RNA: Guanidine-I riboswitch aptamer
Organism: Paenibacillus polymyxa
RNA sequence: AAAAAUGUUUUCUAGGGUUCCGCGAUGUCAUAUCGGCUGGUCCGAGAGAAAACUCACAGUCGUUGUACUGUGUCACGGAGGGAUAAAAGCCUGGGAGAA
Numbered sequence: 001a002a003a004a005a006u007g008u009u010u011u012c013u014a015g016g017g018u019u020c021c022g023c024g025a026u027g028u029c030a031u032a033u034c035g036g037c038u039g040g041u042c043c044g045a046g047a048g049a050a051a052a053c054u055c056a057c058a059g060u061c062g063u064u065g066u067a068c069u070g071u072g073u074c075a076c077g078g079a080g081g082g083a084u085a086a087a088a089g090c091c092u093g094g095g096a097g098a099a
Stems, first nucleotide, its partner, number of pairs: 007053006015043002020040002022037001023035005055072006074094001076097001080092003